[Rfam]
RNA sequence: CAAGCCAGGUUGCAAUUACAGUGCCUCAUUUUCUGGAAGUAUUUCCAUUAUCCUGCUGUAACAAAAGCCAUGUUUUUUAUUUUUGCCUUUAUGAGGGUAAACUCAUAACAGCUUGACAUGGACAAUU
Numbered sequence: 001c002a003a004g005c006c007a008g009g010u011u012g013c014a015a016u017u018a019c020a021g022u023g024c025c026u027c028a029u030u031u032u033c034u035g036g037a038a039g040u041a042u043u044u045c046c047a048u049u050a051u052c053c054u055g056c057u058g059u060a061a062c063a064a065a066a067g068c069c070a071u072g073u074u075u076u077u078u079a080u081u082u083u084u085g086c087c088u089u090u091a092u093g094a095g096g097g098u099a100a101a102c103u104c105a106u107a108a109c110a111g112c113u114u115g116a117c118a119u120g121g122a123c124a125a126u127u
Stems, first nucleotide, its partner, number of pairs: 003057002006055004020043005026037002068121007078105001082101008
Annotation
A member of the RNA family "Small nucleolar RNA SNORA69" from Dipodomys ordii, 127 nucleotides long. The organism belongs to Dipodomys, within Eukaryota. Rfam classes the family as an H/ACA-box small nucleolar RNA. U69 is a member of the H/ACA class of small nucleolar RNAs (snoRNAs) which act as guides in the the modification of uridines to pseudouridines. The base pairs follow the family's consensus structure, which was predicted with PFOLD.